This 90-nucleotide sequence belongs to the Rfam family "DUF3800-VII RNA". The base pairs follow the family's consensus structure, which is taken from published work. It is annotated as a small RNA.
RNA sequence: AGCAGGCAAGCGCGGGGUGCUCACCAGGUCGUCCGACGAGGACGGCAGCCCGUGAGGGUGGGAUCCUGGGUCCCCGGGGCCUGCUUGUCU
Numbered sequence: 001a002g003c004a005g006g007c008a009a010g011c012g013c014g015g016g017g018u019g020c021u022c023a024c025c026a027g028g029u030c031g032u033c034c035g036a037c038g039a040g041g042a043c044g045g046c047a048g049c050c051c052g053u054g055a056g057g058g059u060g061g062g063a064u065c066c067u068g069g070g071u072c073c074c075c076g077g078g079g080c081c082u083g084c085u086u087g088u089c090u
Stems, first nucleotide, its partner, number of pairs: 001085007011077001013076004024069004028046007049058003